[Rfam]
RNA sequence: UCAGGCGGGCUGCCAUCUGUCUGCCUGUCUGUGCCUGCUGUACAGGUGCAGGAAGUUCUGCACAGCAAGUGUAGACAGGCAGACAGACAACGCUCUCAGC
Numbered sequence: 001u002c003a004g005g006c007g008g009g010c011u012g013c014c015a016u017c018u019g020u021c022u023g024c025c026u027g028u029c030u031g032u033g034c035c036u037g038c039u040g041u042a043c044a045g046g047u048g049c050a051g052g053a054a055g056u057u058c059u060g061c062a063c064a065g066c067a068a069g070u071g072u073a074g075a076c077a078g079g080c081a082g083a084c085a086g087a088c089a090a091c092g093c094u095c096u097c098a099g100c
Stems, first nucleotide, its partner, number of pairs: 017086003022081009034069001036067006043060003
RNA: mir-214 microRNA precursor family